[Rfam]
A member of the RNA family "FMN riboswitch aptamer (RFN element)" from a Eubacteriaceae bacterium, 127 nucleotides long. Its family is annotated with FMN binding in the Gene Ontology. NCBI's taxonomy places the organism under Bacteria, Bacillota, Clostridia, Eubacteriales, Eubacteriaceae. The base pairs follow the family's consensus structure, which is taken from published work.
RNA sequence: AGUCUGUUUCAGGGCGGGGCGCAAUUCCCCACCGGCAGUGAUGCGAAAAGCGAGUCUGCGAGCCAUUUUGGGCAGAUCUGGUGUGAAUCCAGAACCGACGGUAUAGUCCGGAUGAAAGAAACGGUCA
Number, nucleotide and partner (000 for none) at each position: 001a000002g000003u000004c124005u123006g122007u121008u120009u119010c118011a000012g000013g000014g000015c000016g000017g029018g028019g027020c000021g000022c000023a000024a000025u000026u000027c019028c018029c017030c000031a107032c106033c097034g096035g059036c058037a057038g056039u000040g000041a000042u000043g000044c000045g000046a000047a000048a000049a000050g000051c000052g000053a000054g095055u094056c038057u037058g036059c035060g000061a000062g073063c072064c071065a000066u000067u000068u000069u000070g000071g064072g063073c062074a000075g000076a000077u093078c092079u091080g090081g089082u000083g000084u000085g000086a000087a000088u000089c081090c080091a079092g078093a077094a055095c054096c034097g033098a000099c110100g109101g108102u000103a000104u000105a000106g032107u031108c101109c100110g099111g000112a000113u000114g000115a000116a000117a000118g010119a009120a008121a007122c006123g005124g004125u000126c000127a000